This 163-nucleotide RNA sequence from Nomascus leucogenys belongs to the Rfam family "U1 spliceosomal RNA".
A search with the family's covariance model found it, with a score of 121 bits.
About the family: U1 is a small nuclear RNA (snRNA) component of the spliceosome (involved in pre-mRNA splicing). Its 5' end forms complementary base pairs with the 5' splice junction, thus defining the 5' donor site of an intron.
By type it is a spliceosomal small nuclear RNA.
Rfam links the family to the GO terms pre-mRNA 5'-splice site binding, mRNA 5'-splice site recognition and U1 snRNP.
RNA sequence: AUACUUAUCUGGCAGGGGAGAUACCAUGUUCACGAAGUUGGUUUUCCAAGGGCCAGGCUUAUCCAUUGCACUCUGGAUGUGCUGACUCCUGUGAUUUGCCCGUACGUGGGAAACUUGACUGCAUAAUUUGUGUAGUGAGGGACUGCGUUCACACUUUCCCCGG
Numbered sequence: 001a002u003a004c005u006u007a008u009c010u011g012g013c014a015g016g017g018g019a020g021a022u023a024c025c026a027u028g029u030u031c032a033c034g035a036a037g038u039u040g041g042u043u044u045u046c047c048a049a050g051g052g053c054c055a056g057g058c059u060u061a062u063c064c065a066u067u068g069c070a071c072u073c074u075g076g077a078u079g080u081g082c083u084g085a086c087u088c089c090u091g092u093g094a095u096u097u098g099c100c101c102g103u104a105c106g107u108g109g110g111a112a113a114c115u116u117g118a119c120u121g122c123a124u125a126a127u128u129u130g131u132g133u134a135g136u137g138a139g140g141g142a143c144u145g146c147g148u149u150c151a152c153a154c155u156u157u158c159c160c161c162g163g
Stems, first nucleotide, its partner, number of pairs: 012122004017047005023042004049090004056083003060079005092117003095113003099109002139160004145154001147152001